[Rfam]
RNA sequence: CUUCCACUCUCCCCGCACAGGAGAGUGGAGACGAGGUACGCGGCGCUCUCUGCCCUGACUGCGCCAAGUCCUCCCCACGGCCGCCGGGAACCGCACACCUGACGGCCGAUGCAGCUGAGGGCUGCGGUGCCGUACGGCCGGGCCGAGGGUCCCGACCGGACCG
Numbered sequence: 001c002u003u004c005c006a007c008u009c010u011c012c013c014c015g016c017a018c019a020g021g022a023g024a025g026u027g028g029a030g031a032c033g034a035g036g037u038a039c040g041c042g043g044c045g046c047u048c049u050c051u052g053c054c055c056u057g058a059c060u061g062c063g064c065c066a067a068g069u070c071c072u073c074c075c076c077a078c079g080g081c082c083g084c085c086g087g088g089a090a091c092c093g094c095a096c097a098c099c100u101g102a103c104g105g106c107c108g109a110u111g112c113a114g115c116u117g118a119g120g121g122c123u124g125c126g127g128u129g130c131c132g133u134a135c136g137g138c139c140g141g142g143c144c145g146a147g148g149g150u151c152c153c154g155a156c157c158g159g160a161c162c163g
Base pairs, nucleotide, nucleotide: 003029004028005027006026008024009023010022011021012020033073034072035071036070038069042065043064045062046061047058048057078108079107080106081105082104083103086100087099088098114128115127116126119123136157137156139154140153141152142151